[Rfam]
RNA sequence: AGCUUUCUGUAUCCGUGCUGAGAUUUCGUCAGCCACCAGGCCAUCGGCACUGAUGAGACUCCCCAGAAGUACGGUG
Numbered sequence: 001a002g003c004u005u006u007c008u009g010u011a012u013c014c015g016u017g018c019u020g021a022g023a024u025u026u027c028g029u030c031a032g033c034c035a036c037c038a039g040g041c042c043a044u045c046g047g048c049a050c051u052g053a054u055g056a057g058a059c060u061c062c063c064c065a066g067a068a069g070u071a072c073g074g075u076g
Base pairs, nucleotide, nucleotide: 006076008073009072010071011070012067013066017062020061021060022059024058025057026056027055028054029053030052

This 76-nucleotide RNA from Schistosoma japonicum belongs to the Rfam family "mir-3492 microRNA precursor family". The source organism's lineage runs through Eukaryota, Lophotrochozoa, Strigeidida, Schistosomatoidea and Schistosoma. The family's consensus secondary structure was predicted with RNAalifold.